The family of this 180-nucleotide RNA sequence from Dentipellis fragilis is "small nucleolar RNA snR35". By type it is an H/ACA-box small nucleolar RNA. The organism belongs to Dentipellis, within Eukaryota. A reference for the family is Li et al. (2005), "Identification and functional analysis of 20 Box H/ACA small nucleolar RNAs (snoRNAs) from Schizosaccharomyces pombe", J Biol Chem. It scores 35 bits against the family's covariance model.
[Rfam]
RNA sequence: UUCGUGCGGCUGCAUGGCUUUCUUUUCCCCAGUGUUGCUCAUAGCUGCGCGUUCUACGCGGCUGUUCGAGUGUCAAGCCAUGCCCAGAGCGACAGGAGCGUCUAAGUACCUUUUGUCCGCGUACCUGUUGCCUAUCGGCAGCGAUUGUGGGCGCGGGCGGGUCGGUGGCUCCGGAUACUU
Numbered sequence: 001u002u003c004g005u006g007c008g009g010c011u012g013c014a015u016g017g018c019u020u021u022c023u024u025u026u027c028c029c030c031a032g033u034g035u036u037g038c039u040c041a042u043a044g045c046u047g048c049g050c051g052u053u054c055u056a057c058g059c060g061g062c063u064g065u066u067c068g069a070g071u072g073u074c075a076a077g078c079c080a081u082g083c084c085c086a087g088a089g090c091g092a093c094a095g096g097a098g099c100g101u102c103u104a105a106g107u108a109c110c111u112u113u114u115g116u117c118c119g120c121g122u123a124c125c126u127g128u129u130g131c132c133u134a135u136c137g138g139c140a141g142c143g144a145u146u147g148u149g150g151g152c153g154c155g156g157g158c159g160g161g162u163c164g165g166u167g168g169c170u171c172c173g174g175a176u177a178c179u180u
Base pairs, nucleotide, nucleotide: 016084017083018082020080037071038070039069040068045061046060047059048058095172096171097170098169099168113160114159115158116157117156118155119154120153121152